Shown here is a 110-nucleotide RNA from Streptococcus sp. zg-36, a member of the family "Streptococcus RNA 266". It is annotated as a small RNA. Rfam 15.1 lists 223 matches to the family in 34 species. The source organism's lineage runs through Bacteria, Bacillati, Bacilli, Lactobacillales and Streptococcus. Pairs were carried over by alignment from the consensus structure. On this family, see Acebo et al., RNA 2012: "Identification of 88 regulatory small RNAs in the TIGR4 strain of the human pathogen Streptococcus pneumoniae". It scores 63 bits against the family's covariance model.

RNA sequence: AAUGUGAGUUUCGUCGCUUUUCAUUAUAAAUUAUAUGGGACUUUUUUCUAUACUGAAAAAGCCCUGUCAUCUCCUCAGUGGCACUUACCAACUACAGAAAUUAUAGAGCC
Numbered sequence: 001a002a003u004g005u006g007a008g009u010u011u012c013g014u015c016g017c018u019u020u021u022c023a024u025u026a027u028a029a030a031u032u033a034u035a036u037g038g039g040a041c042u043u044u045u046u047u048c049u050a051u052a053c054u055g056a057a058a059a060a061g062c063c064c065u066g067u068c069a070u071c072u073c074c075u076c077a078g079u080g081g082c083a084c085u086u087a088c089c090a091a092c093u094a095c096a097g098a099a100a101u102u103a104u105a106g107a108g109c110c
Base pairs, nucleotide, nucleotide: 001025002024003023004022006020008017009016028043029042031040032039061109062108064106066104067103069101070100072098073097077093078092079091081089